[Rfam]
RNA sequence: UGUUGGUCCCCUCGCGACGCUAAGCCGUGAACCCGGUCAGGCCCGGAAGGGAGCAGCCGCAGCGGUGGAUGCGGGCGCCGGGGUGUGGCUGGCAUGG
Number, nucleotide and partner (000 for none) at each position: 001u000002g000003u000004u091005g090006g089007u088008c087009c000010c083011c082012u081013c080014g079015c075016g000017a000018c073019g072020c071021u000022a000023a000024g066025c065026c064027g063028u062029g000030a000031a000032c000033c000034c059035g058036g057037u056038c000039a000040g000041g000042c051043c050044c049045g000046g000047a000048a000049g044050g043051g042052a000053g000054c000055a000056g037057c036058c035059g034060c000061a000062g028063c027064g026065g025066u024067g000068g000069a000070u000071g020072c019073g018074g000075g015076c000077g000078c000079c014080g013081g012082g011083g010084u000085g000086u000087g008088g007089c006090u005091g004092g000093c000094a000095u000096g000097g000
RNA: Bacterial small signal recognition particle RNA
Organism: Magnetovirga frankeli